[Rfam]
RNA sequence: GGGCAGGAUUUAGACUACAAUAUAGCUGUUAAGUACUGUGUUGCCAUUCACCUUGCUCAAAAUAAAAUUGUUUCUUUACUAUACCUGUCUGCUAUGGUCUUGUAGCAGCCAGGCAUGCUUGAUUUCAUACAU
Number, nucleotide and partner (000 for none) at each position: 001g000002g000003g056004c055005a054006g053007g052008a000009u000010u000011u000012a000013g000014a000015c000016u000017a000018c043019a042020a041021u040022a039023u038024a037025g036026c000027u000028g000029u000030u000031a000032a000033g000034u000035a000036c025037u024038g023039u022040g021041u020042u019043g018044c000045c000046a000047u000048u000049c000050a000051c000052c007053u006054u005055g004056c003057u000058c000059a000060a000061a000062a000063u000064a000065a000066a000067a000068u000069u000070g000071u000072u000073u000074c000075u000076u000077u000078a000079c000080u000081a000082u000083a000084c113085c112086u111087g110088u000089c108090u107091g106092c105093u000094a000095u000096g000097g000098u000099c000100u000101u000102g000103u000104a000105g092106c091107a090108g089109c000110c087111a086112g085113g084114c000115a000116u000117g000118c000119u000120u000121g000122a000123u000124u000125u000126c000127a000128u000129a000130c000131a000132u000